Source information: A member of the RNA family "MIR394 microRNA precursor family" from Apium graveolens, 235 nucleotides long. A reference for the family is Jones-Rhoades and Bartel (2004), "Computational identification of plant microRNAs and their targets, including a stress-induced miRNA", Mol Cell. Rfam links the family to the GO terms RISC complex and miRNA-mediated post-transcriptional gene silencing. Lineage of the source: Eukaryota > Viridiplantae > Embryophyta > Magnoliopsida > Apium. The base pairs follow the family's consensus structure, which was predicted with WAR.
RNA sequence: CUUACAUGAGUUUUUUGGCAUUCUGUCCACCUCCUUCAUUUGUGCAGCUAUAUAUCUAUCUGAUUCAUAUUUUUUUUGCUAAAUUCUAUCUAAUUCUUGUUGUUUAGUUACAAGAUUUUACAGCUAUAUACGAUAAUUGGUUAGUUGCAAUAUUUUAUCUGGUAGAGCUUGGUAUAGUUGAUCAGCUGAGUCUAAUUAGAUGGAGGUGGUCAUACUGCCAACAGAGCUCUGUAAG
Number, nucleotide and partner (000 for none) at each position: 001c000002u000003u000004a000005c000006a000007u000008g000009a000010g000011u000012u225013u000014u000015u221016u220017g219018g218019c217020a216021u000022u000023c000024u212025g211026u000027c209028c208029a207030c206031c205032u204033c203034c202035u000036u000037c000038a000039u000040u000041u000042g000043u000044g000045c000046a000047g000048c000049u000050a000051u000052a000053u000054a000055u000056c000057u000058a000059u000060c000061u000062g000063a000064u000065u000066c000067a000068u000069a000070u000071u000072u000073u000074u000075u000076u000077u000078g000079c000080u000081a000082a000083a000084u000085u000086c000087u000088a000089u000090c000091u000092a000093a000094u000095u000096c000097u000098u000099g000100u000101u000102g000103u000104u000105u000106a000107g000108u000109u000110a000111c000112a000113a000114g000115a000116u000117u000118u000119u000120a000121c000122a000123g000124c000125u000126a000127u000128a000129u000130a000131c000132g000133a000134u000135a000136a000137u000138u000139g000140g000141u000142u000143a000144g000145u000146u000147g000148c000149a000150a000151u000152a000153u000154u000155u000156u000157a000158u000159c000160u000161g000162g000163u000164a000165g000166a000167g000168c000169u000170u000171g000172g000173u000174a000175u000176a000177g000178u000179u000180g000181a000182u000183c000184a000185g000186c000187u000188g000189a000190g000191u000192c000193u000194a000195a000196u000197u000198a000199g000200a000201u000202g034203g033204a032205g031206g030207u029208g028209g027210u000211c025212a024213u000214a000215c000216u020217g019218c018219c017220a016221a015222c000223a000224g000225a012226g000227c000228u000229c000230u000231g000232u000233a000234a000235g000